[Rfam]
RNA sequence: UCAGCUGGUGGGAUAAUCCUUACCUGUUCCUCCUUUGGAGGGCAGAUAGAACAUGAUGAUUAGAGAUGCAUGAAAUGUUUAAAUUUAUCUAUAUUAAUAAUAAUUUUUUAAA
Number, nucleotide and partner (000 for none) at each position: 001u000002c000003a000004g000005c000006u000007g000008g000009u000010g000011g000012g000013a000014u000015a000016a000017u000018c000019c000020u000021u000022a000023c000024c045025u044026g043027u000028u042029c041030c040031u039032c038033c037034u000035u000036u000037g033038g032039a031040g030041g029042g028043c026044a025045g024046a000047u000048a000049g000050a000051a000052c000053a000054u000055g000056a000057u000058g000059a000060u000061u000062a000063g000064a000065g000066a000067u000068g000069c000070a000071u000072g089073a088074a000075a086076u081077g000078u000079u000080u000081a076082a000083a000084u000085u000086u075087a000088u073089c072090u000091a000092u000093a000094u111095u110096a109097a108098u000099a106100a105101u000102a000103a000104u000105u100106u099107u000108u097109u096110a095111a094112a000

The family of this 112-nucleotide RNA sequence from Callithrix jacchus is "U8 small nucleolar RNA".
The literature on the family includes a 1997 paper in Mol Cell Biol by Peculis, "The sequence of the 5' end of the U8 small nucleolar RNA is critical for 5.8S and 28S rRNA maturation".
It scores 66 bits against the family's covariance model.
Its family is annotated with nucleolus and RNA processing in the Gene Ontology.